[Rfam]
RNA sequence: GUCAGUAACCCAGCCCUAAAGGGACUGAGCUUGCAAUUUCUUGCAAGCUGUACUGACCAGACCACCCUAAGGGUAGUCUAAGGGUAGCCGUUAUUUGAGUCACGACACCUCGAAAUGCGUAGCCAGUUUCCCGCUCUGUCGCUGUAAGUUAAACAGUUCUAAGGUCACUGGAACAGUGCUUUCAGCCUAACAAGCUCUUAUAACAGGUCAAGGCUAACAUUAC
Numbered sequence: 001g002u003c004a005g006u007a008a009c010c011c012a013g014c015c016c017u018a019a020a021g022g023g024a025c026u027g028a029g030c031u032u033g034c035a036a037u038u039u040c041u042u043g044c045a046a047g048c049u050g051u052a053c054u055g056a057c058c059a060g061a062c063c064a065c066c067c068u069a070a071g072g073g074u075a076g077u078c079u080a081a082g083g084g085u086a087g088c089c090g091u092u093a094u095u096u097g098a099g100u101c102a103c104g105a106c107a108c109c110u111c112g113a114a115a116u117g118c119g120u121a122g123c124c125a126g127u128u129u130c131c132c133g134c135u136c137u138g139u140c141g142c143u144g145u146a147a148g149u150u151a152a153a154c155a156g157u158u159c160u161a162a163g164g165u166c167a168c169u170g171g172a173a174c175a176g177u178g179c180u181u182u183c184a185g186c187c188u189a190a191c192a193a194g195c196u197c198u199u200a201u202a203a204c205a206g207g208u209c210a211a212g213g214c215u216a217a218c219a220u221u222a223c
Stems, first nucleotide, its partner, number of pairs: 001057007010029001012026002015022002030047007060209003064085005090204005097197004105139002109133001112130005120216005141186004146181004153177002156174006

The family of this 223-nucleotide sequence from Anabaena sp. 90 is "HNH endonuclease-associated RNA and ORF (HEARO) RNA". It is annotated as a non-coding RNA gene. Lineage of the source: Bacteria > Cyanobacteriota > Nostocales > Nostocaceae > Anabaena. A search with the family's covariance model found it, with a score of 132 bits.